The record is a 171-nucleotide RNA sequence from Paenibacillus sp. 32O-W, which matches "Group II catalytic intron D1-D4-3" in Rfam. The source organism's lineage runs through Bacteria, Bacillati, Bacillota, Bacilli and Paenibacillus. The pairing is the family consensus, mapped onto this sequence.
[Rfam]
RNA sequence: UCCGCCGUGAGGCGGAAUCUGAAGGAAGCCGGAGGCAAAUGCACGGGCCAAGGUACACGAACCCAAUUUGAGGCAGGAUUAGCCGGAUGAGUUGCCCAUACACAACGAAAUCCUAAGCCGCCAAGGGCUAGUUCUGUAGACUUGGGUGGUCGCGGGCGGAAAGAUGACGCU
Numbered sequence: 001u002c003c004g005c006c007g008u009g010a011g012g013c014g015g016a017a018u019c020u021g022a023a024g025g026a027a028g029c030c031g032g033a034g035g036c037a038a039a040u041g042c043a044c045g046g047g048c049c050a051a052g053g054u055a056c057a058c059g060a061a062c063c064c065a066a067u068u069u070g071a072g073g074c075a076g077g078a079u080u081a082g083c084c085g086g087a088u089g090a091g092u093u094g095c096c097c098a099u100a101c102a103c104a105a106c107g108a109a110a111u112c113c114u115a116a117g118c119c120g121c122c123a124a125g126g127g128c129u130a131g132u133u134c135u136g137u138a139g140a141c142u143u144g145g146g147u148g149g150u151c152g153c154g155g156g157c158g159g160a161a162a163g164a165u166g167a168c169g170c171u
Stems, first nucleotide, its partner, number of pairs: 001016006028171001030169002036163001040158003044154002046151005062146005067140001073137003077133007085113004091106004